[Rfam]
Shown here is a 594-nucleotide part of an RNA from Venturia inaequalis, a member of the family "Eukaryotic large subunit ribosomal RNA".
RNA sequence: CGGGGAAAGAAGACCCUGUUGAGCUUGACUCUAGUUUGACAUUGUGAAAAGACAUAGGGGGUGUAGAAUAGGUGGGAGCUUCGGCGCCGGUGAAAUACCACUACCCUUAUCGUUUUUUUACUUAUUCAAUUAAGCGGAACUGGACUUCACCGUCCAAUUUCUUGCAUUAAGGUCCUUCGCGGGCCGAUCCGGGUUGAAGACAUUGUCAGGUGGGGAGUUUGGCUGGGGCGGCACAUCUGUUAAACCAUAACGCAGGUGUCCUAAGGGGGACUCAUGGAGAACAGAAAUCUCCAGUAGAGCAAAAGGGCAAAAGUCCCCUUGAUUUUGAUUUUCAGUGUGAAUACAAACCAUGAAAGUGUGGCCUAUCGAUCCUUUAGUCCCUCGGAAUUUGAGGCUAGAGGUGCCAGAAAAGUUACCACAGGGAUAACUGGCUUGUGGCAGCCAAGCGUUCAUAGCGACGUUGCUUUUUGAUCCUUCGAUGUCGGCUCUUCCUAUCAUACCGAAGCAGAAUUCGGUAAGCGUUGGAUUGUUCACCCACUAAUAGGGAACGUGAGCUGGGUUUAGACCGUCGUGAGACAGGUUAGUUUUACCCUA
Numbered sequence: 001c002g003g004g005g006a007a008a009g010a011a012g013a014c015c016c017u018g019u020u021g022a023g024c025u026u027g028a029c030u031c032u033a034g035u036u037u038g039a040c041a042u043u044g045u046g047a048a049a050a051g052a053c054a055u056a057g058g059g060g061g062u063g064u065a066g067a068a069u070a071g072g073u074g075g076g077a078g079c080u081u082c083g084g085c086g087c088c089g090g091u092g093a094a095a096u097a098c099c100a101c102u103a104c105c106c107u108u109a110u111c112g113u114u115u116u117u118u119u120a121c122u123u124a125u126u127c128a129a130u131u132a133a134g135c136g137g138a139a140c141u142g143g144a145c146u147u148c149a150c151c152g153u154c155c156a157a158u159u160u161c162u163u164g165c166a167u168u169a170a171g172g173u174c175c176u177u178c179g180c181g182g183g184c185c186g187a188u189c190c191g192g193g194u195u196g197a198a199g200a201c202a203u204u205g206u207c208a209g210g211u212g213g214g215g216a217g218u219u220u221g222g223c224u225g226g227g228g229c230g231g232c233a234c235a236u237c238u239g240u241u242a243a244a245c246c247a248u249a250a251c252g253c254a255g256g257u258g259u260c261c262u263a264a265g266g267g268g269g270a271c272u273c274a275u276g277g278a279g280a281a282c283a284g285a286a287a288u289c290u291c292c293a294g295u296a297g298a299g300c301a302a303a304a305g306g307g308c309a310a311a312a313g314u315c316c317c318c319u320u321g322a323u324u325u326u327g328a329u330u331u332u333c334a335g336u337g338u339g340a341a342u343a344c345a346a347a348c349c350a351u352g353a354a355a356g357u358g359u360g361g362c363c364u365a366u367c368g369a370u371c372c373u374u375u376a377g378u379c380c381c382u383c384g385g386a387a388u389u390u391g392a393g394g395c396u397a398g399a400g401g402u403g404c405c406a407g408a409a410a411a412g413u414u415a416c417c418a419c420a421g422g423g424a425u426a427a428c429u430g431g432c433u434u435g436u437g438g439c440a441g442c443c444a445a446g447c448g449u450u451c452a453u454a455g456c457g458a459c460g461u462u463g464c465u466u467u468u469u470g471a472u473c474c475u476u477c478g479a480u481g482u483c484g485g486c487u488c489u490u491c492c493u494a495u496c497a498u499a500c501c502g503a504a505g506c507a508g509a510a511u512u513c514g515g516u517a518a519g520c521g522u523u524g525g526a527u528u529g530u531u532c533a534c535c536c537a538c539u540a541a542u543a544g545g546g547a548a549c550g551u552g553a554g555c556u557g558g559g560u561u562u563a564g565a566c567c568g569u570c571g572u573g574a575g576a577c578a579g580g581u582u583a584g585u586u587u588u589a590c591c592c593u594a
Stems, first nucleotide, its partner, number of pairs: 003593003007588002015422004020418002022414005028218004035210007044121010054110007071102005078085002125198005135191004143154003171185005221234001222232003235257006260361002266318006272298002275293006299308002323347003328342004349358003372400006380394004431472001433470001435469001437465006446456002483558001484556004488550001489547005496521001499516006523537003527533001564582004568577003
It scores 3191 bits against the family's covariance model.